c-di-GMP-I riboswitch aptamer: a 90-nucleotide RNA from Roseburia sp. CAG:100.
The family's consensus secondary structure is taken from published work.
Lineage of the source: Bacteria > Bacillati > Bacillota > Lachnospirales > Roseburia.

Nucleotides: 090
Base pairs, nucleotide, nucleotide: 012038013037018032019031020030022029023028041084042083043082044081048080049079050076051075052074057070058069059068060067
Number, partner (000 for none) and nucleotide at each position: 001000a002000u003000u004000u005000g006000a007000u008000u009000a010000u011000g012038g013037c014000a015000a016000a017000a018032c019031c020030g021000u022029g023028a024000g025000a026000a027000a028023u029022c030020c031019g032018g033000c034000g035000a036000c037013g038012c039000a040000a041084a042083g043082c044081u045000a046000u047000a048080g049079g050076g051075u052074c053000u054000u055000c056000g057070c058069u059068a060067u061000u062000a063000c064000g065000a066000a067060a068059u069058a070057g071000g072000a073000u074052g075051a076050c077000a078000g079049c080048c081044a082043g083042u084041u085000g086000c087000g088000a089000a090000u